[Rfam]
RNA: mir-17 microRNA precursor family
RNA sequence: UCUGCAGUUGAAAAGUGCUCUCAGUGCAGGUAGUAAACCCAGCACUACUGCAGUCUGAGCACUUAAAGCACUGCCGG
Numbered sequence: 001u002c003u004g005c006a007g008u009u010g011a012a013a014a015g016u017g018c019u020c021u022c023a024g025u026g027c028a029g030g031u032a033g034u035a036a037a038c039c040c041a042g043c044a045c046u047a048c049u050g051c052a053g054u055c056u057g058a059g060c061a062c063u064u065a066a067a068g069c070a071c072u073g074c075c076g077g
Stems, first nucleotide, its partner, number of pairs: 004074004013064008023054001025052003029049005
Dot-bracket structure: ...((((.....((((((((..(.(((.(((((...........)))))))).)..))))))))......))))...